[Rfam]
RNA sequence: ACCCCAUGAUAUUAAGCCGGCAGACGCAUGUAUUUUAACCAGCUGCGUCUGUGACUAUGACUGGGAACAGUAACGCUGCUGAUGUGUGUAUGUUGGAGUUGCGCCUUGCUUGUGUAUCCGACAAAGUUAUUUUCAGACCACA
Numbered sequence: 001a002c003c004c005c006a007u008g009a010u011a012u013u014a015a016g017c018c019g020g021c022a023g024a025c026g027c028a029u030g031u032a033u034u035u036u037a038a039c040c041a042g043c044u045g046c047g048u049c050u051g052u053g054a055c056u057a058u059g060a061c062u063g064g065g066a067a068c069a070g071u072a073a074c075g076c077u078g079c080u081g082a083u084g085u086g087u088g089u090a091u092g093u094u095g096g097a098g099u100u101g102c103g104c105c106u107u108g109c110u111u112g113u114g115u116a117u118c119c120g121a122c123a124a125a126g127u128u129a130u131u132u133u134c135a136g137a138c139c140a141c142a
Stems, first nucleotide, its partner, number of pairs: 020052008079136004091123007100116004
About this RNA:
Shown here is a 142-nucleotide RNA sequence from Drosophila virilis, a member of the family "Small nucleolar RNA snoR639/H1". Rfam links the family to the GO terms RNA processing and nucleolus. Rfam classes the family as an H/ACA-box small nucleolar RNA. On this family, see Giordano et al., J Cell Biol 1999: "minifly, a Drosophila gene required for ribosome biogenesis". The base pairs follow the family's consensus structure. Lineage of the source: Eukaryota > Protostomia > Panarthropoda > Brachycera > Drosophila. Rfam describes the family as follows. snoR639 or snoH1 belongs to the H/ACA class of snoRNAs which are thought to guide the sites of modification of uridines to pseudouridines. snoH1 is found in an intron of the mfl gene in Drosophila.